[Rfam]
RNA: SAM riboswitch aptamer (S box leader)
RNA sequence: AUGUUAUCAAGAAAGGUAGAGGGAAUAGACCCGUUGAAGCCUUGGCAACCCUUUACCUUGUAAAGAAGGUGCUACGUUCUACUGCUUGUCCUGAAUUUAUUUUCAGGAACUAUUCAGAAAGAUAACGA
Numbered sequence: 001a002u003g004u005u006a007u008c009a010a011g012a013a014a015g016g017u018a019g020a021g022g023g024a025a026u027a028g029a030c031c032c033g034u035u036g037a038a039g040c041c042u043u044g045g046c047a048a049c050c051c052u053u054u055a056c057c058u059u060g061u062a063a064a065g066a067a068g069g070u071g072c073u074a075c076g077u078u079c080u081a082c083u084g085c086u087u088g089u090c091c092u093g094a095a096u097u098u099a100u101u102u103u104c105a106g107g108a109a110c111u112a113u114u115c116a117g118a119a120a121g122a123u124a125a126c127g128a
Stems, first nucleotide, its partner, number of pairs: 002127007013043005021032003026081004044073004049069002051065004077120001082117003
Dot-bracket structure: .(((((((....(((((...(((..[[[[)))......)))))((((.((((((.......))))..))))))...(]]]](((..............................)))..)))))))).